[Rfam]
RNA sequence: CAUGGAGGAAGCUGACUUGACUGGUGUGGUACAGAGAAGCCAGCUUUACAUGCCUAAUUCAUG
Numbered sequence: 001c002a003u004g005g006a007g008g009a010a011g012c013u014g015a016c017u018u019g020a021c022u023g024g025u026g027u028g029g030u031a032c033a034g035a036g037a038a039g040c041c042a043g044c045u046u047u048a049c050a051u052g053c054c055u056a057a058u059u060c061a062u063g
Stems, first nucleotide, its partner, number of pairs: 001063006009055001011053002019045001021043005026032002
The record is a 63-nucleotide sequence from Sarcophilus harrisii, which matches "MAT2A 3'UTR stem loop F" in Rfam. The family has 26 seed sequences and 403 matches in Rfam 15.1. It is annotated as a cis-regulatory element. A search with the family's covariance model found it, with a score of 60 bits. On this family, see Parker et al., Genome Res 2011: "New families of human regulatory RNA structures identified by comparative analysis of vertebrate genomes".